Shown here is a 97-nucleotide sequence from Clostridium sp. KNHs216, a member of the family "THF (Tetrahydrofolate) riboswitch aptamer". About the family: Tetrahydrofolate (THF) riboswitch was first reported for Ames et al. as an RNA motif in 5' untranslated (5'-UTR)regions of folate transport and biosynthesis genes in Firmicutes genomes. A search with the family's covariance model found it, with a score of 98 bits. The source organism's lineage runs through Bacteria, Bacillota, Clostridia, Eubacteriales and Clostridium. The base pairs follow the family's consensus structure, which is taken from published work.

[Rfam]
RNA sequence: AGCAGAGUAGAAUUUUGUGCGUUAAGUGCCGCCUGAACGGGGAGUUGUCAGGCGGACGAAAAGGAAACUUGCGGUACAAAAUUCGCAUCCCGCUGCU
Dot-bracket structure: (((((....(((((((((((((...((.((((((((...[[[.[...))))))))))...(((....)))))).)))))))))).].]]]..)))))